[Rfam]
RNA sequence: AGAGGUUAUAAGUUUGAAGUCAUAGCAGAAGUACAACCUGUCAGAUUUCAAUGAAUCUGCAAAUUCUGCU
Numbered sequence: 001a002g003a004g005g006u007u008a009u010a011a012g013u014u015u016g017a018a019g020u021c022a023u024a025g026c027a028g029a030a031g032u033a034c035a036a037c038c039u040g041u042c043a044g045a046u047u048u049c050a051a052u053g054a055a056u057c058u059g060c061a062a063a064u065u066c067u068g069c070u
Stems, first nucleotide, its partner, number of pairs: 016038001019037002024070007042059007